[Rfam]
RNA sequence: AAUAAUGCAGAGGUUUCUGUCCUGGAAAGAGUCAGGCAGGAAAAAGAGCGAAAUUAAGGUAUUUUGCCGGAUGAAACGGACACGCAACAAUGGCGUAAGACGUGAUGUUUAAUCAGGCACUUAGCGGGCUGCGGGUUGCGGCCUGGACGACAGACUGGGAUGUGUGGAUUUUUGAAUACUCUGUAGCACUUCCACCUUCAGGCGCUGGUUUUCCUUAUGAAAAACAGGCCACCGACAAGAUUUGCGCCCCUUUAGCCGCCGACAACCGUGAGGUUGACGUCAGUGCAUGCAGACACGGGGCCAUCGGUUGAUUCUCGUCCAGGGUAACGAUGCCCGCAGCUUUAUCACUCA
Numbered sequence: 001a002a003u004a005a006u007g008c009a010g011a012g013g014u015u016u017c018u019g020u021c022c023u024g025g026a027a028a029g030a031g032u033c034a035g036g037c038a039g040g041a042a043a044a045a046g047a048g049c050g051a052a053a054u055u056a057a058g059g060u061a062u063u064u065u066g067c068c069g070g071a072u073g074a075a076a077c078g079g080a081c082a083c084g085c086a087a088c089a090a091u092g093g094c095g096u097a098a099g100a101c102g103u104g105a106u107g108u109u110u111a112a113u114c115a116g117g118c119a120c121u122u123a124g125c126g127g128g129c130u131g132c133g134g135g136u137u138g139c140g141g142c143c144u145g146g147a148c149g150a151c152a153g154a155c156u157g158g159g160a161u162g163u164g165u166g167g168a169u170u171u172u173u174g175a176a177u178a179c180u181c182u183g184u185a186g187c188a189c190u191u192c193c194a195c196c197u198u199c200a201g202g203c204g205c206u207g208g209u210u211u212u213c214c215u216u217a218u219g220a221a222a223a224a225c226a227g228g229c230c231a232c233c234g235a236c237a238a239g240a241u242u243u244g245c246g247c248c249c250c251u252u253u254a255g256c257c258g259c260c261g262a263c264a265a266c267c268g269u270g271a272g273g274u275u276g277a278c279g280u281c282a283g284u285g286c287a288u289g290c291a292g293a294c295a296c297g298g299g300g301c302c303a304u305c306g307g308u309u310g311a312u313u314c315u316c317g318u319c320c321a322g323g324g325u326a327a328c329g330a331u332g333c334c335c336g337c338a339g340c341u342u343u344a345u346c347a348c349u350c351a
Base pairs, nucleotide, nucleotide: 065119066118067117068116070114071113075109076108077107078106082103083102084101088093126342127341128340129339130338131337132336133335134334135333136332144321145320146319147318148317149316150315157192158191159189164184165183166182167181168180201230202229203228205227206226207225210222211221212220213219231308232307233306234305235304246301247300248299249298250297260279261278263276264275265274266273267272
Record summary
RNase E 5' UTR element: a 351-nucleotide sequence from a Plautia stali symbiont. Gene Ontology term of the family: regulation of gene expression. A search with the family's covariance model found it, with a score of 189 bits. NCBI's taxonomy places the organism under Bacteria, Pseudomonadati, Gammaproteobacteria, Enterobacterales, Enterobacteriaceae. From the family's description: This family represents a conserved element found in the 5' UTR of RNase E mRNA. RNase E is a key regulatory enzyme in the pathway of mRNA degradation in E. coli that is able to auto-regulate the degradation of its own mRNA in response to changes in RNase E activity. This rne 5' UTR element acts as a sensor of cellular RNase E concentration enabling tight regulation of RNase E concentration and synthesis. A reference for the family is Diwa et al. (2000), "An evolutionarily conserved RNA stem-loop functions as a sensor that directs feedback regulation of RNase E gene expression", Genes Dev.